[Rfam]
RNA sequence: GGAGGGUAGAUAGGCCAGAGCAGAGCGCUCACAGCAUGGCCACGUCAGAUUCCAAUGAAUUUGUGAAUUCUACU
Numbered sequence: 001g002g003a004g005g006g007u008a009g010a011u012a013g014g015c016c017a018g019a020g021c022a023g024a025g026c027g028c029u030c031a032c033a034g035c036a037u038g039g040c041c042a043c044g045u046c047a048g049a050u051u052c053c054a055a056u057g058a059a060u061u062u063g064u065g066a067a068u069u070c071u072a073c074u
Base pairs, nucleotide, nucleotide: 013041014040015039016038019074020073022071023070024068025037027035046063047062048061049060050059051058052057
Shown here is a 74-nucleotide RNA from Alligator sinensis, a member of the family "Mammalian CPEB3 ribozyme". The match comes from Rfam's covariance-model search (40 bits). Pairs were carried over by alignment from the consensus structure, which is taken from published work. Gene Ontology term of the family: RNA nuclease activity.